The record is a 102-nucleotide RNA from Cebus imitator, which matches "Y RNA" in Rfam.
RNA sequence: GGCUGGUCUGAGUGCAAUGUUGUUUACAGCGAAUUGAUCACAAUCAGUUAUGGAUUUCUAUGUUCCUCCUCCGCUCCCAUUGCUUCACUUGACUAGCCUUUA
Numbered sequence: 001g002g003c004u005g006g007u008c009u010g011a012g013u014g015c016a017a018u019g020u021u022g023u024u025u026a027c028a029g030c031g032a033a034u035u036g037a038u039c040a041c042a043a044u045c046a047g048u049u050a051u052g053g054a055u056u057u058c059u060a061u062g063u064u065c066c067u068c069c070u071c072c073g074c075u076c077c078c079a080u081u082g083c084u085u086c087a088c089u090u091g092a093c094u095a096g097c098c099u100u101u102a
Base pairs, nucleotide, nucleotide: 001098002097003096004095005094006093007092008091010090011089014086016081017080018079019078022076032064033063034062037059

NCBI's taxonomy places the organism under Eukaryota, Metazoa, Eumetazoa, Cebidae, Cebus.
Rfam's curators write: Y RNAs are components of the Ro ribonucleoprotein particle (Ro RNP), in association with Ro60 and La proteins. The Y RNAs and Ro60 and La proteins are well conserved, but the function of the Ro RNP is not known. In humans the RNA component can be one of four small RNAs -- hY1, hY3, hY4 and hY5. These small RNAs are predicted to fold into a conserved secondary structure containing three stem structures.
Pairs were carried over by alignment from the consensus structure, which is taken from published work.